[Rfam]
RNA: RNase MRP
Organism: Bucorvus abyssinicus
RNA sequence: GGAUGAUCUGAAGACCUGCUGGCUAGGCUACGCACGGAGAACAGUCGUUUCUCAUGGGCCCAGUGCCCGCCUAGGGGAAAGUCCCCGGACCGCUGGCAGAGAGUGCCGAGCGCCACUGGCGUUCUCGCCCGCCCCACCCUCACAUAUUCCCCGCCAAGAAGCCCCCGGGCCGAGCGGCUGAGCAGGGGGCGGGCUCUUGUCACGGCCACAGAGACGCAGGUAGUGCGCAGACGCACUAACAGAACGGGGCUCACUCUCAGGCCAUC
Numbered sequence: 001g002g003a004u005g006a007u008c009u010g011a012a013g014a015c016c017u018g019c020u021g022g023c024u025a026g027g028c029u030a031c032g033c034a035c036g037g038a039g040a041a042c043a044g045u046c047g048u049u050u051c052u053c054a055u056g057g058g059c060c061c062a063g064u065g066c067c068c069g070c071c072u073a074g075g076g077g078a079a080a081g082u083c084c085c086c087g088g089a090c091c092g093c094u095g096g097c098a099g100a101g102a103g104u105g106c107c108g109a110g111c112g113c114c115a116c117u118g119g120c121g122u123u124c125u126c127g128c129c130c131g132c133c134c135c136a137c138c139c140u141c142a143c144a145u146a147u148u149c150c151c152c153g154c155c156a157a158g159a160a161g162c163c164c165c166c167g168g169g170c171c172g173a174g175c176g177g178c179u180g181a182g183c184a185g186g187g188g189g190c191g192g193g194c195u196c197u198u199g200u201c202a203c204g205g206c207c208a209c210a211g212a213g214a215c216g217c218a219g220g221u222a223g224u225g226c227g228c229a230g231a232c233g234c235a236c237u238a239a240c241a242g243a244a245c246g247g248g249g250c251u252c253a254c255u256c257u258c259a260g261g262c263c264a265u266c
Stems, first nucleotide, its partner, number of pairs: 002266004007261005014221006023074006037053005080251002083249004095107004108124006126193001128191001132189004140182001151177004161170003223236005